[Rfam]
RNA sequence: UGACGGGGGCCCGCACAAGCGGUGGAGCAUGUGGUUUAAUUCGACGCAACGCGAAGAACCUUACCUACUCUUGACAUCCAGAGAACUUUCCAGAGAUGGAUGGGUGCCUUCGGGAACUCUGUGACAGGUGCUGCAUGGCUGUCGUCAGCUCGUGUUGUGAAAUGUUGGGUUAAGUCCCGUAACGAGCGCAACCCUUAUCCUUAUUUGCCAGCGGGUUAUGCCGGGAACUCUAAGGAGACUGCCGGUGACAAACCGGAGGAAGGCGGGGACGACGUCAAGUCAUCAUGGCCCUUACGAGUAGGGCUACACACGUGCUACAAUGGGGCGUACAGACGGUAGCGAAGCAGCGAUGUGGAGCCAAUCCGAGAAAGCGUCUCGUAGUCCGGAUCGCAGUCUGCAACUCGACUGCGUGAAGUCGGAAUCGCUAGUAAUCGUGAAUCAGAAUGUCACGGUGAAUACGUUCCCGGGCCUUGUACACACCGCCCGUCACACCAUGGGAGUUGACUGCACCAGAAGUGGGUUGCUUAACAAUGGGCGCUCACCACGGUGUGGUUAAUGACUGGGGUGAAGUCGUAACAAGG
Dot-bracket structure: (((((.(((((((.((..((((((.((((((((((....((((........))))........(((((((......(((((((..((.((((....)))).)).(.((....)).)))))).))..((.((((..((((((.((...(((((((((....)))..((((......))))..)))))).....((((.((((((....((..(((......))))).....))))))..((.(((((.....))))).)).....))))....)).).)))...))))))))....)))))))...)).)))))))).)...(((((((.....(((..((...(((....)))...))....))).....)))))))......(....(((((((........)))))))....).....))))).....(((((((.........)))))))......))...)))))))))).))..(.(..((...((((.(((..((((((((((((....((((((.((((......))))))))))...))))))))))))..))).))))....))...)..).
Numbered sequence: 001u002g003a004c005g006g007g008g009g010c011c012c013g014c015a016c017a018a019g020c021g022g023u024g025g026a027g028c029a030u031g032u033g034g035u036u037u038a039a040u041u042c043g044a045c046g047c048a049a050c051g052c053g054a055a056g057a058a059c060c061u062u063a064c065c066u067a068c069u070c071u072u073g074a075c076a077u078c079c080a081g082a083g084a085a086c087u088u089u090c091c092a093g094a095g096a097u098g099g100a101u102g103g104g105u106g107c108c109u110u111c112g113g114g115a116a117c118u119c120u121g122u123g124a125c126a127g128g129u130g131c132u133g134c135a136u137g138g139c140u141g142u143c144g145u146c147a148g149c150u151c152g153u154g155u156u157g158u159g160a161a162a163u164g165u166u167g168g169g170u171u172a173a174g175u176c177c178c179g180u181a182a183c184g185a186g187c188g189c190a191a192c193c194c195u196u197a198u199c200c201u202u203a204u205u206u207g208c209c210a211g212c213g214g215g216u217u218a219u220g221c222c223g224g225g226a227a228c229u230c231u232a233a234g235g236a237g238a239c240u241g242c243c244g245g246u247g248a249c250a251a252a253c254c255g256g257a258g259g260a261a262g263g264c265g266g267g268g269a270c271g272a273c274g275u276c277a278a279g280u281c282a283u284c285a286u287g288g289c290c291c292u293u294a295c296g297a298g299u300a301g302g303g304c305u306a307c308a309c310a311c312g313u314g315c316u317a318c319a320a321u322g323g324g325g326c327g328u329a330c331a332g333a334c335g336g337u338a339g340c341g342a343a344g345c346a347g348c349g350a351u352g353u354g355g356a357g358c359c360a361a362u363c364c365g366a367g368a369a370a371g372c373g374u375c376u377c378g379u380a381g382u383c384c385g386g387a388u389c390g391c392a393g394u395c396u397g398c399a400a401c402u403c404g405a406c407u408g409c410g411u412g413a414a415g416u417c418g419g420a421a422u423c424g425c426u427a428g429u430a431a432u433c434g435u436g437a438a439u440c441a442g443a444a445u446g447u448c449a450c451g452g453u454g455a456a457u458a459c460g461u462u463c464c465c466g467g468g469c470c471u472u473g474u475a476c477a478c479a480c481c482g483c484c485c486g487u488c489a490c491a492c493c494a495u496g497g498g499a500g501u502u503g504a505c506u507g508c509a510c511c512a513g514a515a516g517u518g519g520g521u522u523g524c525u526u527a528a529c530a531a532u533g534g535g536c537g538c539u540c541a542c543c544a545c546g547g548u549g550u551g552g553u554u555a556a557u558g559a560c561u562g563g564g565g566u567g568a569a570g571u572c573g574u575a576a577c578a579a580g581g
Stems, first nucleotide, its partner, number of pairs: 001477002003474003007471007015461002019425005024318001026316008034307002040055004064302007077124002079121005086103002089100004105116001107114002127291002130289004136285002138280003141276001143274002148187006154163003166179004193268004198236006208225002212223003239259002242256005322377007334365003339358002344353003384415001389410007431453007480580001482577001485573002490567004495562003500557012516542006523536004